Shown here is a 267-nucleotide sequence from Pseudogymnoascus sp. VKM F-4281, a member of the family "Fungal signal recognition particle RNA". Its Rfam clan is "SRP clan". The base pairs follow the family's consensus structure, which is taken from published work.

RNA sequence: CGGCUAUGAUGGUCAUCUGGUAAGGAACUGCAUUUGCACUCUCCCGCCACUCUAUUCUAUCUUAUCACAUGGUGUCCGGUUCGAACGCUGCGGAGGCCCCCAACUCGUGUCGGUAACGCACGAUCGCUUGUGGGGUCCUAAGCAAUGAAAGACAAUCUUGAGGGAGGUUUCACUCUGCAGAGGAUCUUUCACCGUGGCGUGGCGAGCGGGAUUGCACCAGUGAUGGGUGAGUGGCGAGAAGCGCAUCGGAUGUGGUGACUUAUACUU
Numbered sequence: 001c002g003g004c005u006a007u008g009a010u011g012g013u014c015a016u017c018u019g020g021u022a023a024g025g026a027a028c029u030g031c032a033u034u035u036g037c038a039c040u041c042u043c044c045c046g047c048c049a050c051u052c053u054a055u056u057c058u059a060u061c062u063u064a065u066c067a068c069a070u071g072g073u074g075u076c077c078g079g080u081u082c083g084a085a086c087g088c089u090g091c092g093g094a095g096g097c098c099c100c101c102a103a104c105u106c107g108u109g110u111c112g113g114u115a116a117c118g119c120a121c122g123a124u125c126g127c128u129u130g131u132g133g134g135g136u137c138c139u140a141a142g143c144a145a146u147g148a149a150a151g152a153c154a155a156u157c158u159u160g161a162g163g164g165a166g167g168u169u170u171c172a173c174u175c176u177g178c179a180g181a182g183g184a185u186c187u188u189u190c191a192c193c194g195u196g197g198c199g200u201g202g203c204g205a206g207c208g209g210g211a212u213u214g215c216a217c218c219a220g221u222g223a224u225g226g227g228u229g230a231g232u233g234g235c236g237a238g239a240a241g242c243g244c245a246u247c248g249g250a251u252g253u254g255g256u257g258a259c260u261u262a263u264a265c266u267u
Base pairs, nucleotide, nucleotide: 002014003013004012020263021262022261023260024259027256028255029254030253031252032251033250035243036242037241039238040237041236046235047234048233049232050231051230052229055226063225064224065223066222067221070219071218072217073216074215075214076210077209079207080206081205082204083203085200086199087198088197089196090195091194092193093192095137097135098134099133100132101130102129103128105123106122107121108120109119111118112117138142146191147190148189149188150187151186152185156183157182158181159180164175165174166173
The family's RNA type in Rfam is non-coding RNA gene. On this family, see Wild et al., Curr Opin Struct Biol 2002: "Towards the structure of the mammalian signal recognition particle". The source organism's lineage runs through Eukaryota, Dikarya, sordariomyceta, Thelebolaceae and Pseudogymnoascus.